RNA sequence: CCUGCACUUCGAACCGGCUCCGUAUGGAGUGCUUGCCACGGUAACCCAUGGCUAGAAUGCAGGAUCGCA
Numbered sequence: 001c002c003u004g005c006a007c008u009u010c011g012a013a014c015c016g017g018c019u020c021c022g023u024a025u026g027g028a029g030u031g032c033u034u035g036c037c038a039c040g041g042u043a044a045c046c047c048a049u050g051g052c053u054a055g056a057a058u059g060c061a062g063g064a065u066c067g068c069a
Stems, first nucleotide, its partner, number of pairs: 001063006008057003016032001018029004035052004
A member of the RNA family "DUF3800-IX RNA", 69 nucleotides long. From the family's description: Actinobacteria, Firmicutes (1 example), Nitrospirae, Proteobacteria, Verrucomicrobia (1 example). By type it is a small RNA. The family's consensus secondary structure is taken from published work.